Source information
c-di-GMP-I riboswitch aptamer: an 87-nucleotide RNA sequence from Desulfoluna spongiiphila. The match comes from Rfam's covariance-model search (52 bits). NCBI's taxonomy places the organism under Bacteria, Thermodesulfobacteriota, Desulfobacterales, Desulfolunaceae, Desulfoluna.
RNA sequence: CCACCGUAAAGCCAAACCCGGAGUAAUCCGGCGACGGAAAGCCACGAGUCCGUAUUCCUAAAAAGUACGGAUCGUCGGGCCGCCUCU
Numbered sequence: 001c002c003a004c005c006g007u008a009a010a011g012c013c014a015a016a017c018c019c020g021g022a023g024u025a026a027u028c029c030g031g032c033g034a035c036g037g038a039a040a041g042c043c044a045c046g047a048g049u050c051c052g053u054a055u056u057c058c059u060a061a062a063a064a065g066u067a068c069g070g071a072u073c074g075u076c077g078g079g080c081c082g083c084c085u086c087u
Base pairs, nucleotide, nucleotide: 012037013036018031019030020029021028022027041080042079043078045077046076047075048072049071050070051069052068053067054066055065056064